[Rfam]
This 70-nucleotide RNA sequence from Brassica carinata belongs to the Rfam family "Small nucleolar RNA Z105".
Rfam 15.1 lists 621 matches to the family in 204 species.
The organism belongs to Brassica, within Eukaryota.
It scores 52 bits against the family's covariance model.
RNA sequence: GAGGCACGAUGAGGAUUGUUUAUUGUCAUCUGAUUCAUCAUGAUGAUUCAAAACCUCCUACUCAUUCCGA
Numbered sequence: 001g002a003g004g005c006a007c008g009a010u011g012a013g014g015a016u017u018g019u020u021u022a023u024u025g026u027c028a029u030c031u032g033a034u035u036c037a038u039c040a041u042g043a044u045g046a047u048u049c050a051a052a053a054c055c056u057c058c059u060a061c062u063c064a065u066u067c068c069g070a
Stems, first nucleotide, its partner, number of pairs: 006065001008063002026046002030042001